[Rfam]
RNA sequence: AACUUAUCCAGAGCGGUGGAGGGACUGGCCCUAUGAAACCCGGCAACCAUUAGGCGUUUUACGUCUGAAAGGUGCUACAUCCUGCAAAGAGUCCGCUCUUUGGGAGAUAAGAU
Numbered sequence: 001a002a003c004u005u006a007u008c009c010a011g012a013g014c015g016g017u018g019g020a021g022g023g024a025c026u027g028g029c030c031c032u033a034u035g036a037a038a039c040c041c042g043g044c045a046a047c048c049a050u051u052a053g054g055c056g057u058u059u060u061a062c063g064u065c066u067g068a069a070a071g072g073u074g075c076u077a078c079a080u081c082c083u084g085c086a087a088a089g090a091g092u093c094c095g096c097u098c099u100u101u102g103g104g105a106g107a108u109a110a111g112a113u
Base pairs, nucleotide, nucleotide: 001113003111004110005109006108007107008106013041015040016039017038021031022030023029025084027082028081042076043075044074045073047072048071050068051067052066053065054064055063080105085102086101087100088099089098090097
RNA: SAM riboswitch aptamer (S box leader)
Organism: Alkalicoccus daliensis